[Rfam]
RNA sequence: GGGGCGAAUCGGGCGGUCGCCGGUGGUCGGCGUGACCGGCCAUCGGAGGAAAGUCCGAACACCGCAGGGCAGCGGGCUGGGUAACGCCCAGGCAGGCCGCCCGCAAGGGCGUCCUGACGACAAGUGCAACAGAGAGCAGACCGGCCGAUGGCCACCGUUCUCCGGUCGAGAGCGGUGGAUCAGGCGAUGGGUGAAACGGUGGGGUAAGAGCCCACCAGCGGGCGUGGUGACACGCCCGGCUAGGCAAACUCCCCGCGGUGCAAGACCAAAUAGGAAGGCGCUCGAGGGUGGCCCGCCCGACGAUCGCCGGCCGCAUGGCCGCGCGAUGGCGCCUUCGGGUAGGUCGCUUGAGCUGACGGGUAACCGUCAGCCCAGAGGAAUGACCGCCAUCCCGCUUCCAUGCGGGAGACAGAAUUCGGCUUACAGAUUCGCCCCGAAC
Number, nucleotide and partner (000 for none) at each position: 001g435002g434003g433004g432005c431006g430007a429008a428009u427010c426011g424012g388013g387014c386015g385016g384017u383018c382019g000020c046021c045022g044023g043024u042025g041026g040027u039028c038029g000030g000031c000032g000033u000034g000035a000036c000037c000038g028039g027040c026041c025042a024043u023044c022045g021046g020047a000048g000049g000050a000051a422052a421053g420054u000055c419056c418057g417058a416059a415060c260061a259062c258063c257064g000065c000066a000067g324068g000069g322070c321071a000072g256073c255074g254075g253076g252077c091078u090079g089080g088081g087082u000083a000084a000085c000086g000087c081088c080089c079090a078091g077092g118093c116094a115095g114096g113097c000098c000099g000100c000101c000102c000103g000104c000105a000106a000107g000108g000109g000110c000111g000112u000113c096114c095115u094116g093117a000118c092119g251120a250121c000122a000123a000124g249125u248126g245127c244128a000129a000130c000131a000132g000133a000134g000135a000136g000137c000138a000139g000140a000141c190142c189143g000144g185145c184146c183147g000148a000149u000150g000151g000152c000153c000154a000155c000156c000157g000158u000159u000160c000161u000162c000163c000164g000165g000166u000167c000168g000169a000170g000171a000172g000173c000174g000175g000176u000177g000178g000179a000180u000181c000182a000183g146184g145185c144186g000187a000188u000189g142190g141191g000192u000193g000194a000195a000196a000197c000198g216199g215200u214201g213202g212203g211204g000205u000206a000207a000208g000209a000210g000211c203212c202213c201214a200215c199216c198217a000218g240219c238220g237221g236222g235223c234224g233225u232226g231227g000228u000229g000230a000231c226232a225233c224234g223235c222236c221237c220238g219239g000240c218241u000242a000243g000244g127245c126246a000247a000248a125249c124250u120251c119252c076253c075254c074255g073256c072257g063258g062259u061260g060261c000262a000263a000264g345265a344266c343267c342268a000269a000270a000271u000272a000273g000274g336275a335276a334277g333278g332279c331280g000281c000282u000283c000284g000285a000286g000287g000288g000289u000290g000291g000292c000293c000294c000295g000296c000297c000298c000299g000300a000301c000302g000303a000304u000305c000306g000307c000308c000309g000310g000311c000312c000313g000314c000315a000316u328317g327318g000319c325320c000321g070322c069323g000324c067325g319326a000327u317328g316329g000330c000331g279332c278333c277334u276335u275336c274337g000338g000339g000340u000341a000342g267343g266344u265345c264346g000347c000348u000349u000350g000351a000352g371353c370354u369355g368356a367357c366358g365359g364360g000361u000362a000363a000364c359365c358366g357367u356368c355369a354370g353371c352372c000373c000374a000375g000376a000377g000378g000379a000380a000381u000382g018383a017384c016385c015386g014387c013388c012389a000390u000391c000392c000393c000394g000395c000396u000397u000398c000399c000400a000401u000402g000403c000404g000405g000406g000407a000408g000409a000410c000411a000412g000413a000414a000415u059416u058417c057418g056419g055420c053421u052422u051423a000424c011425a000426g010427a009428u008429u007430c006431g005432c004433c003434c002435c001436g000437a000438a000439c000